RNA sequence: UGGAAAUGAUGAAAUGGAGAUACUUGGGUGUUGAAUGUUGUAUGACUGAAAAUUUUUAAUAUAUUAAUUCUAGAUUAGUAUUUUAUGGUAGUUAAUUGUUUGUGUGUGUGUGUGUGUGUGUGUAUGUGUGUGUUUUGGGCUAUGGAAAGGGGGCACUGAAUGGUGAUGCUGAUAUUGGAGUGCAUCUGAGGCUGUUGUAGAAAUAAUAGGGGUGUUGAUUUACAACAUUGCCAAUGAUUAUAACCCCAAAGCAGCUCACCUAACUAGCCCAGCACCCUAAAAUCUCUUAACAGGUUCAUUAAACAUGGUCCUGUAAUCUGAUCCAA
Numbered sequence: 001u002g003g004a005a006a007u008g009a010u011g012a013a014a015u016g017g018a019g020a021u022a023c024u025u026g027g028g029u030g031u032u033g034a035a036u037g038u039u040g041u042a043u044g045a046c047u048g049a050a051a052a053u054u055u056u057u058a059a060u061a062u063a064u065u066a067a068u069u070c071u072a073g074a075u076u077a078g079u080a081u082u083u084u085a086u087g088g089u090a091g092u093u094a095a096u097u098g099u100u101u102g103u104g105u106g107u108g109u110g111u112g113u114g115u116g117u118g119u120g121u122g123u124a125u126g127u128g129u130g131u132g133u134u135u136u137g138g139g140c141u142a143u144g145g146a147a148a149g150g151g152g153g154c155a156c157u158g159a160a161u162g163g164u165g166a167u168g169c170u171g172a173u174a175u176u177g178g179a180g181u182g183c184a185u186c187u188g189a190g191g192c193u194g195u196u197g198u199a200g201a202a203a204u205a206a207u208a209g210g211g212g213u214g215u216u217g218a219u220u221u222a223c224a225a226c227a228u229u230g231c232c233a234a235u236g237a238u239u240a241u242a243a244c245c246c247c248a249a250a251g252c253a254g255c256u257c258a259c260c261u262a263a264c265u266a267g268c269c270c271a272g273c274a275c276c277c278u279a280a281a282a283u284c285u286c287u288u289a290a291c292a293g294g295u296u297c298a299u300u301a302a303a304c305a306u307g308g309u310c311c312u313g314u315a316a317u318c319u320g321a322u323c324c325a326a
Base pairs, nucleotide, nucleotide: 001325002324003323004322193227194226195225196224197223198222199221200220202216203215204214205213207212